Gammaproteobacterial sRNA STnc100: a 192-nucleotide sequence from Klebsiella phage ST16-OXA48phi5.1. Rfam 15.1 lists 137 matches to the family in 112 species. Taxonomically the source falls in Caudoviricetes (Viruses, Duplodnaviria, Heunggongvirae, Uroviricota). By type it is a small RNA. The base pairs follow the family's consensus structure, which was predicted with CMfinder.
[Rfam]
RNA sequence: UAAAAUUAACAUCUUGUUAAUCUAUUCGUGUGGUGAAUCCCCCUAUGCGGAGGGGCGUCCAGUCAGUUACAGAACCUGUAAAUGCAGCGCGGGCCAUGCCGACUGGGGCAUGCUCACCGGGAGGCACCCGGCACCACGCAAUGCUACUAAGCUAUUUGGUAGUGGGGUUGCUGUUUCGGCUUCUCCAGCUAU
Numbered sequence: 001u002a003a004a005a006u007u008a009a010c011a012u013c014u015u016g017u018u019a020a021u022c023u024a025u026u027c028g029u030g031u032g033g034u035g036a037a038u039c040c041c042c043c044u045a046u047g048c049g050g051a052g053g054g055g056c057g058u059c060c061a062g063u064c065a066g067u068u069a070c071a072g073a074a075c076c077u078g079u080a081a082a083u084g085c086a087g088c089g090c091g092g093g094c095c096a097u098g099c100c101g102a103c104u105g106g107g108g109c110a111u112g113c114u115c116a117c118c119g120g121g122a123g124g125c126a127c128c129c130g131g132c133a134c135c136a137c138g139c140a141a142u143g144c145u146a147c148u149a150a151g152c153u154a155u156u157u158g159g160u161a162g163u164g165g166g167g168u169u170g171c172u173g174u175u176u177c178g179g180c181u182u183c184u185c186c187a188g189c190u191a192u
Stems, first nucleotide, its partner, number of pairs: 014146001016144001028139008040055005063080001084090002091115004097110002117131005156191001162185001164183007